[Rfam]
RNA sequence: UCGCGUGUUCCGGGGUCGGUGCAAUUCCGAGCCGGCGGUCAUAGUCCGCGACCCGCCCUCCUUCGGGAGGAUGGUUGAACCGGUGGAACUCCGGUACCGACGGUGAAAGUCCGGAUGAGAGGCACACGCGG
Numbered sequence: 001u002c003g004c005g006u007g008u009u010c011c012g013g014g015g016u017c018g019g020u021g022c023a024a025u026u027c028c029g030a031g032c033c034g035g036c037g038g039u040c041a042u043a044g045u046c047c048g049c050g051a052c053c054c055g056c057c058c059u060c061c062u063u064c065g066g067g068a069g070g071a072u073g074g075u076u077g078a079a080c081c082g083g084u085g086g087a088a089c090u091c092c093g094g095u096a097c098c099g100a101c102g103g104u105g106a107a108a109g110u111c112c113g114g115a116u117g118a119g120a121g122g123c124a125c126a127c128g129c130g131g
Base pairs, nucleotide, nucleotide: 003129004128005127006126007125008124009122010121017029018028019027031110032109033099034098035049036048037047038046044097045096053074054073079095080094081093082092083091101113102112103111